[Rfam]
RNA sequence: AUCUCAGUGCUGCGUUUCCUCCUCCCAUUUUGCGCAGGCUGAGUGUUCCCCUCUGGAGGUUUGCCUCAAUGGCACCUUCAAAAUUCAAAAGCCGGACGUUUGUCUGGCUUUUUUUU
Numbered sequence: 001a002u003c004u005c006a007g008u009g010c011u012g013c014g015u016u017u018c019c020u021c022c023u024c025c026c027a028u029u030u031u032g033c034g035c036a037g038g039c040u041g042a043g044u045g046u047u048c049c050c051c052u053c054u055g056g057a058g059g060u061u062u063g064c065c066u067c068a069a070u071g072g073c074a075c076c077u078u079c080a081a082a083a084u085u086c087a088a089a090a091g092c093c094g095g096a097c098g099u100u101u102g103u104c105u106g107g108c109u110u111u112u113u114u115u116u
Stems, first nucleotide, its partner, number of pairs: 001044001003043003007039001012035004054080007088111006095104003

This 116-nucleotide RNA from Brucella abortus belongs to the Rfam family "Alphaproteobacterial ar15". The pairing is the family consensus, mapped onto this sequence. Lineage of the source: Bacteria > Pseudomonadati > Alphaproteobacteria > Brucella > Brucella abortus. The family has 61 seed sequences and 316 matches in Rfam 15.1. Rfam classes the family as a small RNA. Clan: suhB sRNA clan.